Shown here is a 128-nucleotide sequence from Carnegiea gigantea, a member of the family "U11 spliceosomal RNA".
The family's consensus secondary structure is taken from published work.
The family has 72 seed sequences and 2,595 matches in Rfam 15.1.
The source organism's lineage runs through Eukaryota, Streptophyta, Pentapetalae, Cactineae and Carnegiea.
RNA sequence: UAAAAGGGUUGGUUGGCUAAAUAUGCUACGCUGGCUCUGAGAAUGACGGGUGCUGUAUGGCUAUCAAGACAUAUGGCCGACAUAAUUUUUGGAACCUCAUAGGGUUGGCUCGCUUGGCCGACCCUUCG
Dot-bracket structure: .......(((((.((((.......))))((((.((.....).....).))))(((((((..........)))))))))))).................(..(.(((((((.....))))))))..)..
Numbered sequence: 001u002a003a004a005a006g007g008g009u010u011g012g013u014u015g016g017c018u019a020a021a022u023a024u025g026c027u028a029c030g031c032u033g034g035c036u037c038u039g040a041g042a043a044u045g046a047c048g049g050g051u052g053c054u055g056u057a058u059g060g061c062u063a064u065c066a067a068g069a070c071a072u073a074u075g076g077c078c079g080a081c082a083u084a085a086u087u088u089u090u091g092g093a094a095c096c097u098c099a100u101a102g103g104g105u106u107g108g109c110u111c112g113c114u115u116g117g118c119c120g121a122c123c124c125u126u127c128g
Stems, first nucleotide, its partner, number of pairs: 008081005014028004029052004034047001035041001053076007099126001102123001104122007